[Rfam]
RNA sequence: GGCCGAUGAUGUACCAUUAUUGUCUGUACCAUCUGAGAUGUUUCUCUUUGAUGCGAAUUUCUUUUUAUGCCAAUCAAGCUUCUGAGGCCC
Numbered sequence: 001g002g003c004c005g006a007u008g009a010u011g012u013a014c015c016a017u018u019a020u021u022g023u024c025u026g027u028a029c030c031a032u033c034u035g036a037g038a039u040g041u042u043u044c045u046c047u048u049u050g051a052u053g054c055g056a057a058u059u060u061c062u063u064u065u066u067a068u069g070c071c072a073a074u075c076a077a078g079c080u081u082c083u084g085a086g087g088c089c090c
Stems, first nucleotide, its partner, number of pairs: 001089004
small nucleolar RNA snoR117: a 90-nucleotide sequence from Ananas comosus. On this family, see Chen and Wu, Nucleic Acids Res 2009: "Mining small RNA sequencing data: a new approach to identify small nucleolar RNAs in Arabidopsis". A search with the family's covariance model found it, with a score of 57 bits.